Shown here is a 74-nucleotide sequence from Thermodesulfatator indicus, a member of the family "tRNA". Rfam describes the family as follows. Transfer RNA (tRNA) molecules are approximately 80 nucleotides in length. Rfam classes the family as a transfer RNA. It scores 66 bits against the family's covariance model. The source organism's lineage runs through Bacteria, Thermodesulfobacteriota, Thermodesulfobacteria, Thermodesulfatatoraceae and Thermodesulfatator indicus.
RNA sequence: CGGGACGUGGCUCAGCCUGGUAGAGCACUGGGUUCGGGACUCAGGGGUCGCAGGUUCAAAUCCUGCCGUCCCGA
Numbered sequence: 001c002g003g004g005a006c007g008u009g010g011c012u013c014a015g016c017c018u019g020g021u022a023g024a025g026c027a028c029u030g031g032g033u034u035c036g037g038g039a040c041u042c043a044g045g046g047g048u049c050g051c052a053g054g055u056u057c058a059a060a061u062c063c064u065g066c067c068g069u070c071c072c073g074a
Stems, first nucleotide, its partner, number of pairs: 001073007010026004028044005050066005